The family of this 85-nucleotide RNA from Ladona fulva is "mir-927 microRNA precursor family".
For this family Rfam cites "Systematic discovery and characterization of fly microRNAs using 12 Drosophila genomes" (Stark et al., Genome Res, 2007).
Gene Ontology terms of the family: RISC complex and miRNA-mediated post-transcriptional gene silencing.
It scores 67 bits against the family's covariance model.
Lineage of the source: Eukaryota > Bilateria > Ecdysozoa > Libelluloidea > Ladona.
[Rfam]
RNA sequence: GUCGUGUUGAUUUGUUUUAGAAUUCCUACGCUUUACCGGAUAAUUGAUCUCGGCAAAGCGUUUGAGUUCUGAAACCGAUUACAUG
Numbered sequence: 001g002u003c004g005u006g007u008u009g010a011u012u013u014g015u016u017u018u019a020g021a022a023u024u025c026c027u028a029c030g031c032u033u034u035a036c037c038g039g040a041u042a043a044u045u046g047a048u049c050u051c052g053g054c055a056a057a058g059c060g061u062u063u064g065a066g067u068u069c070u071g072a073a074a075c076c077g078a079u080u081a082c083a084u085g
Stems, first nucleotide, its partner, number of pairs: 010079003014075008023066003028061007036053002